[Rfam]
RNA sequence: UUACUCUGGUUUCUCUUCAGAUCGUAUAAAUCUUUUGCCUUUUAGUAAAGAUUUCCGUGGAGAGCUUCAGUGACUUCUGAAAAUGGCACAUAGGAUACUAAGUC
Numbered sequence: 001u002u003a004c005u006c007u008g009g010u011u012u013c014u015c016u017u018c019a020g021a022u023c024g025u026a027u028a029a030a031u032c033u034u035u036u037g038c039c040u041u042u043u044a045g046u047a048a049a050g051a052u053u054u055c056c057g058u059g060g061a062g063a064g065c066u067u068c069a070g071u072g073a074c075u076u077c078u079g080a081a082a083a084u085g086g087c088a089c090a091u092a093g094g095a096u097a098c099u100a101a102g103u104c
Base pairs, nucleotide, nucleotide: 004072006070009068013064014063015062016061017060018059019058028054029053030052031051032050033049034048035047086104088103089102091100092099093098
U5 spliceosomal RNA: a 104-nucleotide RNA sequence from Pelusios castaneus.
The family has 180 seed sequences and 28,527 matches in Rfam 15.1.
A reference for the family is Hinz et al. (1996), "Domain analysis of human U5 RNA. Cap trimethylation, protein binding, and spliceosome assembly", J Biol Chem.
The match comes from Rfam's covariance-model search (52 bits).
It is annotated as a spliceosomal small nuclear RNA.